[Rfam]
RNA sequence: GCAGGUGAAUGCAACGUCAAGCGAUGGGCGUUGUGCUCCAUAUUGUCUUAUUUACUUAUUUUUGAAUUAAGCGAGUACACUUUAAUUCGAACAGCGCCGGUCUUAUGACCGGCUUUU
Numbered sequence: 001g002c003a004g005g006u007g008a009a010u011g012c013a014a015c016g017u018c019a020a021g022c023g024a025u026g027g028g029c030g031u032u033g034u035g036c037u038c039c040a041u042a043u044u045g046u047c048u049u050a051u052u053u054a055c056u057u058a059u060u061u062u063u064g065a066a067u068u069a070a071g072c073g074a075g076u077a078c079a080c081u082u083u084a085a086u087u088c089g090a091a092c093a094g095c096g097c098c099g100g101u102c103u104u105a106u107g108a109c110c111g112g113c114u115u116u117u
Base pairs, nucleotide, nucleotide: 001046002045003044004043007038008037010035011034012033013032014031015030016029017028018027064088065087066086067085068084069083071080073078096113097112098111099110100109101108102107

Notes: Shown here is a 117-nucleotide sequence from Ewingella americana, a member of the family "Fumarate/nitrate reductase regulator sRNA". A search with the family's covariance model found it, with a score of 92 bits. It is annotated as a small RNA. For this family Rfam cites "Reprogramming of anaerobic metabolism by the FnrS small RNA" (Durand and Storz, Mol Microbiol, 2010).